[Rfam]
RNA sequence: GGGGCCGACCUGGUUUCGACGUGGGUAGUGAAGCAAUUCAGGGCAUACCGAGGACCCGUCACCUCGUAAAUCAAUGGGAAUCAACUAACUGCAAACGACUCUCGUUUCCAGCUGGCCGCUUAACACCGGCCAACCUCGCACUAGCCUGCUGAUGGGGUAGGGUCGCAAGACCGCGCGAGGUCAUUUUCAUCAGAUCGUGCCAGAUGGCGUCGCGACGUCCGGUACUAAAACCUAGCGAAUCGCCGUGCCGAAGCGUGUUCUGUCCGCGUCGGAACGGUUAAAUCAAAAGACAGGACUAAGUAUGUAGAACUGGUUGCAGAAGACUUACGGACGCGGGUUCGAUUCCCGCCGGCUCCACCA
Numbered sequence: 001g002g003g004g005c006c007g008a009c010c011u012g013g014u015u016u017c018g019a020c021g022u023g024g025g026u027a028g029u030g031a032a033g034c035a036a037u038u039c040a041g042g043g044c045a046u047a048c049c050g051a052g053g054a055c056c057c058g059u060c061a062c063c064u065c066g067u068a069a070a071u072c073a074a075u076g077g078g079a080a081u082c083a084a085c086u087a088a089c090u091g092c093a094a095a096c097g098a099c100u101c102u103c104g105u106u107u108c109c110a111g112c113u114g115g116c117c118g119c120u121u122a123a124c125a126c127c128g129g130c131c132a133a134c135c136u137c138g139c140a141c142u143a144g145c146c147u148g149c150u151g152a153u154g155g156g157g158u159a160g161g162g163u164c165g166c167a168a169g170a171c172c173g174c175g176c177g178a179g180g181u182c183a184u185u186u187u188c189a190u191c192a193g194a195u196c197g198u199g200c201c202a203g204a205u206g207g208c209g210u211c212g213c214g215a216c217g218u219c220c221g222g223u224a225c226u227a228a229a230a231c232c233u234a235g236c237g238a239a240u241c242g243c244c245g246u247g248c249c250g251a252a253g254c255g256u257g258u259u260c261u262g263u264c265c266g267c268g269u270c271g272g273a274a275c276g277g278u279u280a281a282a283u284c285a286a287a288a289g290a291c292a293g294g295a296c297u298a299a300g301u302a303u304g305u306a307g308a309a310c311u312g313g314u315u316g317c318a319g320a321a322g323a324c325u326u327a328c329g330g331a332c333g334c335g336g337g338u339u340c341g342a343u344u345c346c347c348g349c350c351g352g353c354u355c356c357a358c359c360a
Stems, first nucleotide, its partner, number of pairs: 001356007020329007029320001033317004038313004044304005049066005055078005114131005134180006144158004149193006197225005203219003210238004242278005248272004253267003257296004262291003333349005